[Rfam]
RNA sequence: GCCGAGCCAGGUAGCGUUGGCUUGUCACCCGAGCGGGGGCAACAAGGUGGCGUUGGAUGCCUGGUUGUUGCGCUUUGGUCUGGGCCUGUGGUCUGCACUCUGCGGCCCGCCCGUUCCAAGUUGAACAGUGUGCAUGUGGGCGCUUGGGCGAAGGCCCCCGGGCGUCCAUUCACCUAGAGUGGCGGGUACUGCGUGAGGCUGGUUUCACAGAGCAGCGAGUACCGUCCGCUUCCAACGGUGGAAGGAUAACGGGCCGCUGCGACCCUUGCCCGCUUCCGGCCCAAGUGCCCUCCAUGGCAGACCACCAUCUUU
Numbered sequence: 001g002c003c004g005a006g007c008c009a010g011g012u013a014g015c016g017u018u019g020g021c022u023u024g025u026c027a028c029c030c031g032a033g034c035g036g037g038g039g040c041a042a043c044a045a046g047g048u049g050g051c052g053u054u055g056g057a058u059g060c061c062u063g064g065u066u067g068u069u070g071c072g073c074u075u076u077g078g079u080c081u082g083g084g085c086c087u088g089u090g091g092u093c094u095g096c097a098c099u100c101u102g103c104g105g106c107c108c109g110c111c112c113g114u115u116c117c118a119a120g121u122u123g124a125a126c127a128g129u130g131u132g133c134a135u136g137u138g139g140g141c142g143c144u145u146g147g148g149c150g151a152a153g154g155c156c157c158c159c160g161g162g163c164g165u166c167c168a169u170u171c172a173c174c175u176a177g178a179g180u181g182g183c184g185g186g187u188a189c190u191g192c193g194u195g196a197g198g199c200u201g202g203u204u205u206c207a208c209a210g211a212g213c214a215g216c217g218a219g220u221a222c223c224g225u226c227c228g229c230u231u232c233c234a235a236c237g238g239u240g241g242a243a244g245g246a247u248a249a250c251g252g253g254c255c256g257c258u259g260c261g262a263c264c265c266u267u268g269c270c271c272g273c274u275u276c277c278g279g280c281c282c283a284a285g286u287g288c289c290c291u292c293c294a295u296g297g298c299a300g301a302c303c304a305c306c307a308u309c310u311u312u
Stems, first nucleotide, its partner, number of pairs: 001040003004023007028037003044311007052303001055302001058299002060296001062294003067289001071287005077281004082271004088265001090263001092262002096259002102257008111245002114243005120236004125231001127230003130173003134169002138167009147156003174179001181226005190219001192217003199210003

The family of this 312-nucleotide RNA from Oryza meyeriana is "Plant signal recognition particle RNA". It is annotated as a non-coding RNA gene. Its Rfam clan is "SRP clan".